[Rfam]
RNA: c-di-GMP-I riboswitch aptamer
RNA sequence: ACUUGAUAAGGGCAACCUGAACUGAAAAGUGCAGGGCGCAAAACUACCGGCCUAAGGGGCAACCUGUAAAAGGGGUUACCUACGGCAGCGGAGUUUCCGGG
Numbered sequence: 001a002c003u004u005g006a007u008a009a010g011g012g013c014a015a016c017c018u019g020a021a022c023u024g025a026a027a028a029g030u031g032c033a034g035g036g037c038g039c040a041a042a043a044c045u046a047c048c049g050g051c052c053u054a055a056g057g058g059g060c061a062a063c064c065u066g067u068a069a070a071a072g073g074g075g076u077u078a079c080c081u082a083c084g085g086c087a088g089c090g091g092a093g094u095u096u097c098c099g100g101g
Base pairs, nucleotide, nucleotide: 012039013038017034018033019032021030022029023028042095043094044093045092047091048090049089050086051085052084057080058079